Rfam assigns this 79-nucleotide RNA sequence from Bacillus yapensis to the family "Group II catalytic intron D1-D4-1". NCBI's taxonomy places the organism under Bacteria, Bacillati, Bacillota, Bacilli, Bacillus. Group II introns are found in rRNA, tRNA and mRNA of organelles in fungi, plants and protists, and also in mRNA in bacteria.
RNA sequence: GAACCUAUUUAGUGAUAAAUAGCUGAAUCAAGAGAAGUCAGCAGAAGUCAUAGUAUCAGACCUACGGUCUGAGAAGGAC
Numbered sequence: 001g002a003a004c005c006u007a008u009u010u011a012g013u014g015a016u017a018a019a020u021a022g023c024u025g026a027a028u029c030a031a032g033a034g035a036a037g038u039c040a041g042c043a044g045a046a047g048u049c050a051u052a053g054u055a056u057c058a059g060a061c062c063u064a065c066g067g068u069c070u071g072a073g074a075a076g077g078a079c
Stems, first nucleotide, its partner, number of pairs: 002024001005022007038045002047079003056072006